[Rfam]
RNA sequence: GGGGGUGACUGGCUUCGACUUCGAUCUUGCAAGCCAGGUGAAGCGGGCCGAGGACUGCGGACAUAACCUCGUUAAUCCUGUGACCGCAAACCAAUAAGUGCCAAUUCCAAGCGCACUGAGGUCAGCCAGGGUUCCCUGGCUCUCGCUGCCUAAGUAGCGAAACCUCUGUCAGCCCGGGAGUGCCUUCGGCCCGGUGUCUGACAUCGCUAGAAGGCUCAACCGAUCGACCCGGCCACGGGGGAGAUCGGGAAAUCAAACAGUGGCUGAGCCCGUCGGCGACUCGCCUGUGUGAUCGCCGGGGCUGAGAAAAGCACAGCAGGCUGCGCCCGGAGAAGCCCUGACUUGGGGUUGAAGGACGCGGGUUCGAUUCCCGCCACCUCCACCA
Numbered sequence: 001g002g003g004g005g006u007g008a009c010u011g012g013c014u015u016c017g018a019c020u021u022c023g024a025u026c027u028u029g030c031a032a033g034c035c036a037g038g039u040g041a042a043g044c045g046g047g048c049c050g051a052g053g054a055c056u057g058c059g060g061a062c063a064u065a066a067c068c069u070c071g072u073u074a075a076u077c078c079u080g081u082g083a084c085c086g087c088a089a090a091c092c093a094a095u096a097a098g099u100g101c102c103a104a105u106u107c108c109a110a111g112c113g114c115a116c117u118g119a120g121g122u123c124a125g126c127c128a129g130g131g132u133u134c135c136c137u138g139g140c141u142c143u144c145g146c147u148g149c150c151u152a153a154g155u156a157g158c159g160a161a162a163c164c165u166c167u168g169u170c171a172g173c174c175c176g177g178g179a180g181u182g183c184c185u186u187c188g189g190c191c192c193g194g195u196g197u198c199u200g201a202c203a204u205c206g207c208u209a210g211a212a213g214g215c216u217c218a219a220c221c222g223a224u225c226g227a228c229c230c231g232g233c234c235a236c237g238g239g240g241g242a243g244a245u246c247g248g249g250a251a252a253u254c255a256a257a258c259a260g261u262g263g264c265u266g267a268g269c270c271c272g273u274c275g276g277c278g279a280c281u282c283g284c285c286u287g288u289g290u291g292a293u294c295g296c297c298g299g300g301g302c303u304g305a306g307a308a309a310a311g312c313a314c315a316g317c318a319g320g321c322u323g324c325g326c327c328c329g330g331a332g333a334a335g336c337c338c339u340g341a342c343u344u345g346g347g348g349u350u351g352a353a354g355g356a357c358g359c360g361g362g363u364u365c366g367a368u369u370c371c372c373g374c375c376a377c378c379u380c381c382a383c384c385a
Stems, first nucleotide, its partner, number of pairs: 001381007019354010031344003035340004044329005049071005056088005062082001141162001143160007167203006174193001176192003182215006220248006228240001231265006267303005274298003278294002283321004358374005
RNA: transfer-messenger RNA